[Rfam]
RNA sequence: UCCCUUUUCAGACGCGGGCGUUGUGCCUAUAUUCCUCCUCGCCGGUGAAAGCCGGCUAUGGUGAUAAACAGACGAUGCAAUAAACCAUUCGGACCCGGGGGCGGUACCCGGCGCCUCCACCGGAGUCUCUCUCCUCGUUCCUGGCGACGAGGAUGCCGAGAGCCUGCGGCGGGGGCGAAAUAGGAUCGACGAGGGUGUAAAGAUCGGACUUUUGCCCGGCAUUGUACCGCCGUUAUCGGGCUAUUUUUAUAGUUGCCAACGACAACUAUGCGGAAGUCCGUCUCGCUGCUUAAGGCAGCGCGAUAGCUUCGAAUCAAGCCCUGGGGGUUCGCACUUCUAGGCGGGGUCCGGAGGCACCUGGCAACAGAAGCCUCCACU
Dot-bracket structure: ........................................(((((......)))))...(((((.....((.((((........((..(((...(((((.......)))))(((((((....................................................)))))))............))).)).......))))..)).)))))((((.[.[..[[)))).....]].].]....................................................................................................[[[[..((((((]]]]..........))))))...
RNA: Alphaproteobacteria transfer-messenger RNA